The family of this 70-nucleotide RNA from Colius striatus is "mir-144 microRNA precursor family". The literature on the family includes a 2006 paper in FEBS Lett by Xu et al., "Identification of microRNAs from different tissues of chicken embryo and adult chicken". A search with the family's covariance model found it, with a score of 80 bits. Gene Ontology terms of the family: RISC complex and miRNA-mediated post-transcriptional gene silencing.
RNA sequence: GCCUGGGGCAGGAUAUCAUCGUAUACUGUAAGUCGGCUAUGAGACACUACAGUAUAGAUGAUGUACUCCC
Numbered sequence: 001g002c003c004u005g006g007g008g009c010a011g012g013a014u015a016u017c018a019u020c021g022u023a024u025a026c027u028g029u030a031a032g033u034c035g036g037c038u039a040u041g042a043g044a045c046a047c048u049a050c051a052g053u054a055u056a057g058a059u060g061a062u063g064u065a066c067u068c069c070c
Base pairs, nucleotide, nucleotide: 007070008069010067011066013064014063015062016061017060018059019058020057022056023055024054025053026052027051028050029049030048032045033044034043